A member of the RNA family "Eukaryotic large subunit ribosomal RNA" from Colletotrichum asianum, 434 nucleotides of a longer RNA. The match comes from Rfam's covariance-model search (1910 bits).

RNA sequence: AGUAGUAGUAAAUACUUUAAUAAGAACUUAAAGGACUGAAGUAAGGAAAGGUUUUAUAUAAAUAGUAGUUAGAUAUAAGUUAGUUAAUCUUAAGCUAUAGGGAAGUUCUAUUUUAAAGGGGUACUUAUACCCUAUAUAGCGAAAGGGAAGCUAGUUAAUAUUCUAGCACUUAGAUAUAGGUUUUGCGCAGCAAUAUAACUAAACAUAGAGAUAAUAGUAGGAGCUUUAGGUAAAGUUCUCUUUUCUUCUUAAUAGUUUAUUACCUUAAAAUUAGUUUGUCUAGAGCUAGGGUUUAAUAGCUAGAAGAGCUUAGCACUUCUAUUAGGUUUAGUAUACUCUUAACGUCCUUUGAAAAUCUAUAAAAAGGAAUAAUUCUCACGCUAGGUUAUACUUAUAACUAUAGUAGGUCUCUAAAGUAAAUAGCCUCUAGUUAA
Numbered sequence: 001a002g003u004a005g006u007a008g009u010a011a012a013u014a015c016u017u018u019a020a021u022a023a024g025a026a027c028u029u030a031a032a033g034g035a036c037u038g039a040a041g042u043a044a045g046g047a048a049a050g051g052u053u054u055u056a057u058a059u060a061a062a063u064a065g066u067a068g069u070u071a072g073a074u075a076u077a078a079g080u081u082a083g084u085u086a087a088u089c090u091u092a093a094g095c096u097a098u099a100g101g102g103a104a105g106u107u108c109u110a111u112u113u114u115a116a117a118g119g120g121g122u123a124c125u126u127a128u129a130c131c132c133u134a135u136a137u138a139g140c141g142a143a144a145g146g147g148a149a150g151c152u153a154g155u156u157a158a159u160a161u162u163c164u165a166g167c168a169c170u171u172a173g174a175u176a177u178a179g180g181u182u183u184u185g186c187g188c189a190g191c192a193a194u195a196u197a198a199c200u201a202a203a204c205a206u207a208g209a210g211a212u213a214a215u216a217g218u219a220g221g222a223g224c225u226u227u228a229g230g231u232a233a234a235g236u237u238c239u240c241u242u243u244u245c246u247u248c249u250u251a252a253u254a255g256u257u258u259a260u261u262a263c264c265u266u267a268a269a270a271u272u273a274g275u276u277u278g279u280c281u282a283g284a285g286c287u288a289g290g291g292u293u294u295a296a297u298a299g300c301u302a303g304a305a306g307a308g309c310u311u312a313g314c315a316c317u318u319c320u321a322u323u324a325g326g327u328u329u330a331g332u333a334u335a336c337u338c339u340u341a342a343c344g345u346c347c348u349u350u351g352a353a354a355a356u357c358u359a360u361a362a363a364a365a366g367g368a369a370u371a372a373u374u375c376u377c378a379c380g381c382u383a384g385g386u387u388a389u390a391c392u393u394a395u396a397a398c399u400a401u402a403g404u405a406g407g408u409c410u411c412u413a414a415a416g417u418a419a420a421u422a423g424c425c426u427c428u429a430g431u432u433a434a
Base pairs, nucleotide, nucleotide: 015033016032017031018030019029020028034432035431036430037429043412045410046409049392050391054078055077056076057075058074059073063071064070085388086387087386089146090145094140095139097111098110100109101108102107119133120132121131150167151166152165153164154163170384171383172382173381175380177378179376180374187196189194205360206359207358208357209356214345215344218341219340220339221338222337223336226331227330228329229249230248232246234244253302254301255300256299257298262292263291264290265289266288267287271283272282273281274280309326310325311324312323313322315320398407399406414426416424417423